Overview
The family of this 153-nucleotide RNA sequence from Tritonibacter aquimaris is "Ruegeria cis2 sRNA". The family's consensus secondary structure was predicted with RNAfold.
RNA sequence: GCUGCUGAAAUGCGGGUUGUAGUUCUUGAACAUAUAGCCGCGGGCCUGGUCGAUGCAGUGAAACAACGGGUUCCAAUCAAACAUCACCAGCAUGCUGCUCGGCAAAGUAUUGGCCAGAAACAUUUUGCCUGAGGCGAUCAUAUUGGCGCGUUG
Numbered sequence: 001g002c003u004g005c006u007g008a009a010a011u012g013c014g015g016g017u018u019g020u021a022g023u024u025c026u027u028g029a030a031c032a033u034a035u036a037g038c039c040g041c042g043g044g045c046c047u048g049g050u051c052g053a054u055g056c057a058g059u060g061a062a063a064c065a066a067c068g069g070g071u072u073c074c075a076a077u078c079a080a081a082c083a084u085c086a087c088c089a090g091c092a093u094g095c096u097g098c099u100c101g102g103c104a105a106a107g108u109a110u111u112g113g114c115c116a117g118a119a120a121c122a123u124u125u126u127g128c129c130u131g132a133g134g135c136g137a138u139c140a141u142a143u144u145g146g147c148g149c150g151u152u153g
Stems, first nucleotide, its partner, number of pairs: 003034002006032002012026001014024002039055002041052003064153005070082003087146004092141003098134002100131003103127006110119002